RNA sequence: CGCAGAAUUAAACACGGAUCAACUUGACCUACUUCAGUGUCAGUGGAAUCCGCCAGUGUUUUGCAAG
Numbered sequence: 001c002g003c004a005g006a007a008u009u010a011a012a013c014a015c016g017g018a019u020c021a022a023c024u025u026g027a028c029c030u031a032c033u034u035c036a037g038u039g040u041c042a043g044u045g046g047a048a049u050c051c052g053c054c055a056g057u058g059u060u061u062u063g064c065a066a067g
Stems, first nucleotide, its partner, number of pairs: 002064007016051004022044002026041003
Source information
Trypanosomatid snoRNA TB9Cs3H1: a 67-nucleotide RNA sequence from Leishmania braziliensis. Gene Ontology terms of the family: RNA processing and nucleolus. Pairs were carried over by alignment from the consensus structure, which was predicted with WAR. The sequence is in the family's curated seed alignment. The organism belongs to Leishmania braziliensis, within Eukaryota.